RNA sequence: ACGAUGUUCCGCUGCAAUCAUAAAAAGGAAUGUAAGAGCAUCUG
Numbered sequence: 001a002c003g004a005u006g007u008u009c010c011g012c013u014g015c016a017a018u019c020a021u022a023a024a025a026a027g028g029a030a031u032g033u034a035a036g037a038g039c040a041u042c043u044g
Stems, first nucleotide, its partner, number of pairs: 003042007013034002016031001018029002
Shown here is a 44-nucleotide RNA from Bacillus sp. 1NLA3E, a member of the family "Ribosomal protein L19 leader". Lineage of the source: Bacteria > Bacillota > Bacilli > Bacillaceae > Bacillus. About the family: This family is a putative r-protein leader autoregulatory structure found in B. subtilis and other low-GC Gram-positive bacteria. It is located in the 5' untranslated regions of mRNAs encoding ribosomal protein L19 (rplS). For this family Rfam cites "Diverse mechanisms for regulating ribosomal protein synthesis in Escherichia coli" (Zengel and Lindahl, Prog Nucleic Acid Res Mol Biol, 1994). The base pairs follow the family's consensus structure, which was predicted with CMfinder.